The record is a 141-nucleotide RNA from Salsuginibacillus halophilus, which matches "Ribosomal protein L20 leader" in Rfam. The literature on the family includes a 1994 paper in Prog Nucleic Acid Res Mol Biol by Zengel and Lindahl, "Diverse mechanisms for regulating ribosomal protein synthesis in Escherichia coli". About the family: This family is a putative r-protein leader autoregulatory structure found in B. subtilis and other low-GC Gram-positive bacteria. The base pairs follow the family's consensus structure, which was predicted with CMfinder. The family's RNA type in Rfam is cis-regulatory leader.

Nucleotides: 141
Base pairs, nucleotide, nucleotide: 011026012025013024014023015022016021028059029058030057036052037051038050039048040047104128105127106126107125108124109123110122111121112120
Number, partner (000 for none) and nucleotide at each position: 001000c002000a003000a004000a005000g006000c007000a008000a009000g010000c011026a012025g013024a014023g015022g016021c017000g018000c019000c020000c021016g022015c023014u024013u025012c026011u027000c028059a029058c030057c031000u032000g033000a034000u035000u036052g037051a038050c039048g040047c041000u042000u043000u044000c045000g046000g047040g048039c049000a050038g051037u052036u053000g054000a055000c056000a057030g058029g059028u060000c061000a062000c063000g064000g065000u066000u067000u068000a069000a070000u071000c072000a073000c074000u075000a076000a077000u078000c079000a080000c081000g082000u083000u084000c085000g086000u087000u088000a089000a090000u091000g092000a093000u094000g095000a096000a097000a098000c099000c100000a101000a102000a103000g104128a105127g106126u107125g108124g109123g110122u111121g112120u113000c114000g115000u116000g117000u118000g119000u120112a121111c122110a123109c124108c125107c126106g127105c128104u129000c130000u131000u132000u133000u134000u135000u136000a137000u138000g139000c140000u141000u